[Rfam]
RNA sequence: AGACCUAAAAGACUUCUCUUCCUGGUUCUUCCCAGAAUUGGGAAAAGCUGGGUCAAGAGGGCAAAAAAGAAAAAAA
Numbered sequence: 001a002g003a004c005c006u007a008a009a010a011g012a013c014u015u016c017u018c019u020u021c022c023u024g025g026u027u028c029u030u031c032c033c034a035g036a037a038u039u040g041g042g043a044a045a046a047g048c049u050g051g052g053u054c055a056a057g058a059g060g061g062c063a064a065a066a067a068a069g070a071a072a073a074a075a076a
Base pairs, nucleotide, nucleotide: 014059015058016057017056021052022051023050024049025048029044030043031042032041033040034039